Shown here is a 94-nucleotide sequence from Salisediminibacterium halotolerans, a member of the family "Glycine riboswitch aptamer". Taxonomically the source falls in Salisediminibacterium (Bacteria, Bacillota, Bacilli, Caryophanales). This family represents the bacterial glycine riboswitch. Glycine riboswitches usually consist of two metabolite-binding aptamers domains with similar structures in tandem. The aptamers cooperatively bind glycine to regulate the expression of downstream genes. In Bacillus subtilis, this riboswitch is found upstream of the gcvT operon which controls glycine degradation. Pairs were carried over by alignment from the consensus structure.

RNA sequence: AUGAUAAUAAGGGGAGAGAAUGACAGAUGAGGUCAUCGCCGAAGGAGCAAACGCAGUGCGUGAAUCUCUCAGGCAGCCAGACUCUUAUUGGACG
Numbered sequence: 001a002u003g004a005u006a007a008u009a010a011g012g013g014g015a016g017a018g019a020a021u022g023a024c025a026g027a028u029g030a031g032g033u034c035a036u037c038g039c040c041g042a043a044g045g046a047g048c049a050a051a052c053g054c055a056g057u058g059c060g061u062g063a064a065u066c067u068c069u070c071a072g073g074c075a076g077c078c079a080g081a082c083u084c085u086u087a088u089u090g091g092a093c094g
Stems, first nucleotide, its partner, number of pairs: 006089008020036004038074003041070002045068003051061002